[Rfam]
RNA sequence: UACGUCUCACGUAACUGGCGAAACACCGCGUGCGCGCACCAUUCGGAUGCGCGGCGCGGCAAAGGUGGGCACCCACCGGGGAACGUGAGACGCCAUACGCCGUUCGCCUGGGCAGCCAUC
Numbered sequence: 001u002a003c004g005u006c007u008c009a010c011g012u013a014a015c016u017g018g019c020g021a022a023a024c025a026c027c028g029c030g031u032g033c034g035c036g037c038a039c040c041a042u043u044c045g046g047a048u049g050c051g052c053g054g055c056g057c058g059g060c061a062a063a064g065g066u067g068g069g070c071a072c073c074c075a076c077c078g079g080g081g082a083a084c085g086u087g088a089g090a091c092g093c094c095a096u097a098c099g100c101c102g103u104u105c106g107c108c109u110g111g112g113c114a115g116c117c118a119u120c
Stems, first nucleotide, its partner, number of pairs: 003092010015080002017108005065076004099113003
Dot-bracket structure: ..((((((((((..(([[[[[...........................................((((....))))..))..))))))))))......(((..]]]]]..))).......